[Rfam]
RNA sequence: GCAACCUUUAAGGCAGUCCUGUGAGGCUGGCAAGGUGAUCGAUUUCGUUCGUCAUGCAAUCAAUCUAUGAUUAUAUGAUUAUAUGACGUGUGCUUUCGUGUGCAUAUAUCAAGCGAUAAGCACCUUGCCGGCUAGUCAGGCAAGGUGCUUUUUUAU
Number, nucleotide and partner (000 for none) at each position: 001g000002c000003a000004a036005c035006c034007u033008u032009u000010a000011a000012g000013g000014c029015a028016g027017u026018c025019c000020u000021g000022u000023g000024a000025g018026g017027c016028u015029g014030g000031c000032a008033a007034g006035g005036u004037g000038a000039u000040c000041g000042a000043u000044u000045u000046c000047g000048u000049u081050c000051g079052u078053c077054a076055u075056g074057c000058a072059a071060u070061c069062a068063a000064u000065c000066u000067a000068u062069g061070a060071u059072u058073a000074u056075a055076u054077g053078a052079u051080u000081a049082u000083a000084u000085g000086a000087c000088g000089u000090g000091u000092g000093c000094u000095u000096u000097c000098g000099u000100g000101u000102g000103c000104a000105u000106a000107u000108a000109u000110c000111a000112a000113g000114c000115g000116a152117u000118a150119a149120g148121c147122a146123c145124c144125u143126u142127g141128c140129c139130g000131g000132c000133u000134a000135g000136u000137c000138a000139g129140g128141c127142a126143a125144g124145g123146u122147g121148c120149u119150u118151u000152u116153u000154u000155a000156u000